[Rfam]
RNA sequence: UCUUGAGUAGUUCUUUCUAGGACUGUCCAACCUGAGAAUGGUGAUAUCAGGCUCAAUCUCAGGUUCGUCAGCCCAUGAAACGCUAACUCACC
Numbered sequence: 001u002c003u004u005g006a007g008u009a010g011u012u013c014u015u016u017c018u019a020g021g022a023c024u025g026u027c028c029a030a031c032c033u034g035a036g037a038a039u040g041g042u043g044a045u046a047u048c049a050g051g052c053u054c055a056a057u058c059u060c061a062g063g064u065u066c067g068u069c070a071g072c073c074c075a076u077g078a079a080a081c082g083c084u085a086a087c088u089c090a091c092c
Base pairs, nucleotide, nucleotide: 005089006088007087008085009084010083011082014080015079016078017077020074021073023071024070025069027067029065030064031063032062033061034060035059036058037057039055040054

Description:
Shown here is a 92-nucleotide sequence from Channa argus, a member of the family "mir-1388 microRNA precursor family". The family's consensus secondary structure was predicted with RNAalifold. Rfam 15.1 lists 600 matches to the family in 570 species. Its family is annotated with RISC complex and miRNA-mediated post-transcriptional gene silencing in the Gene Ontology. It scores 90 bits against the family's covariance model.